[Rfam]
RNA sequence: GUGCCUCAAUCUAUUGAGUAAGGAAAUUAUUGGGCCUUGGUAACUCUCGGCUAUGUCCUAAAGGGCGAAACUAUUUUUGAUGGGUACAGGUCGUCCUCUAGAACUGUGCGCCUACUUUGCGCACGGUUCGAGUGAAGCGAUCUGCCUU
Numbered sequence: 001g002u003g004c005c006u007c008a009a010u011c012u013a014u015u016g017a018g019u020a021a022g023g024a025a026a027u028u029a030u031u032g033g034g035c036c037u038u039g040g041u042a043a044c045u046c047u048c049g050g051c052u053a054u055g056u057c058c059u060a061a062a063g064g065g066c067g068a069a070a071c072u073a074u075u076u077u078u079g080a081u082g083g084g085u086a087c088a089g090g091u092c093g094u095c096c097u098c099u100a101g102a103a104c105u106g107u108g109c110g111c112c113u114a115c116u117u118u119g120c121g122c123a124c125g126g127u128u129c130g131a132g133u134g135a136a137g138c139g140a141u142c143u144g145c146c147u148u
Base pairs, nucleotide, nucleotide: 004023005022006021008019033052034051035050036049039046054067055066056065057064058063082147083146084145085144088143089142090141091140092139093138094137098132099131101129102128103127104126105125107123108122109121110120111119
Dot-bracket structure: ...(((.(..........).))).........((((..(......)..)))).(((((....)))))..............((((..(((((((...((.(((((.(((((.......))))).))))).))....))))))))))).